[Rfam]
RNA: Streptomyces-metH RNA
RNA sequence: GCAGUCCGCACCGUGAACGCACUGACGGGGCAGGGCCGCGUCCGGCUACGCUGGCGGGGUGCGCCUUCCGACAGAGGGUCGCAAAGCCGACAGCCGUCGCAUCCCUGGGAGAUCAUCCAUG
Numbered sequence: 001g002c003a004g005u006c007c008g009c010a011c012c013g014u015g016a017a018c019g020c021a022c023u024g025a026c027g028g029g030g031c032a033g034g035g036c037c038g039c040g041u042c043c044g045g046c047u048a049c050g051c052u053g054g055c056g057g058g059g060u061g062c063g064c065c066u067u068c069c070g071a072c073a074g075a076g077g078g079u080c081g082c083a084a085a086g087c088c089g090a091c092a093g094c095c096g097u098c099g100c101a102u103c104c105c106u107g108g109g110a111g112a113u114c115a116u117c118c119a120u121g
Base pairs, nucleotide, nucleotide: 060083061082062081063080065077066076067075068074086100087099089098090097091096
Dot-bracket structure: ...........................................................((((.((((.....))))..))))..((.(((....))))).....................